[Rfam]
RNA: Plastid-ccsA-ndhD-1 3UTR RNA
Organism: Gossypium harknessii
RNA sequence: GUCAAGAACCUUUUGAAUCGCUCCACUACUUGAUUCAAAAGGUUCUAACAAA
Numbered sequence: 001g002u003c004a005a006g007a008a009c010c011u012u013u014u015g016a017a018u019c020g021c022u023c024c025a026c027u028a029c030u031u032g033a034u035u036c037a038a039a040a041g042g043u044u045c046u047a048a049c050a051a052a
Stems, first nucleotide, its partner, number of pairs: 005046016